[Rfam]
RNA: Small nucleolar RNA SNORD102
Organism: Nannospalax galili
RNA sequence: GACUCUGUUUUGUUUUGAUUGCUUGAAGCAAUGUGAAAAACACAUUUCACCAGUUUUGGGGGGAAAAAGAGUC
Numbered sequence: 001g002a003c004u005c006u007g008u009u010u011u012g013u014u015u016u017g018a019u020u021g022c023u024u025g026a027a028g029c030a031a032u033g034u035g036a037a038a039a040a041c042a043c044a045u046u047u048c049a050c051c052a053g054u055u056u057u058g059g060g061g062g063g064a065a066a067a068a069g070a071g072u073c
Base pairs, nucleotide, nucleotide: 001073002072003071004070005069